[Rfam]
RNA: Small nucleolar RNA SNORA49
Nucleotides: 139
Base pairs, nucleotide, nucleotide: 003061004060005059006058007057008056009055011053017048018047019046020045022043023041024040025039026038027037073133074132075131077129078128090117092115093114094113096112097111098110099109
Number, partner (000 for none) and nucleotide at each position: 001000u002000u003061u004060c005059c006058u007057c008056a009055g010000c011053c012000u013000u014000a015000c016000u017048c018047c019046a020045g021000a022043g023041g024040c025039u026038c027037c028000a029000c030000a031000a032000c033000c034000c035000a036000u037027g038026g039025a040024g041023u042000g043022c044000c045020u046019u047018g048017g049000c050000a051000u052000u053011g054000c055009c056008u057007g058006a059005g060004g061003a062000u063000a064000c065000a066000g067000u068000g069000a070000a071000a072000g073133u074132g075131u076000u077129u078128c079000u080000g081000a082000a083000c084000u085000g086000g087000a088000u089000g090117u091000c092115c093114a094113g095000a096112a097111g098110g099109g100000g101000a102000c103000u104000u105000c106000a107000u108000c109099c110098c111097c112096u113094u114093u115092g116000a117090g118000g119000c120000u121000u122000a123000c124000a125000g126000u127000u128078g129077g130000a131075a132074c133073a134000a135000a136000c137000a138000u139000u